[Rfam]
RNA: tRNA
RNA sequence: GCCCCCUUAGUGCAAUGGUUAGCAUACAUUUUUCCGGUGGAUGUGAUCCGGGUUCGAGUCCCGGGGGGGGCU
Numbered sequence: 001g002c003c004c005c006c007u008u009a010g011u012g013c014a015a016u017g018g019u020u021a022g023c024a025u026a027c028a029u030u031u032u033u034c035c036g037g038u039g040g041a042u043g044u045g046a047u048c049c050g051g052g053u054u055c056g057a058g059u060c061c062c063g064g065g066g067g068g069g070g071c072u
Stems, first nucleotide, its partner, number of pairs: 001071007010025004027043005048064005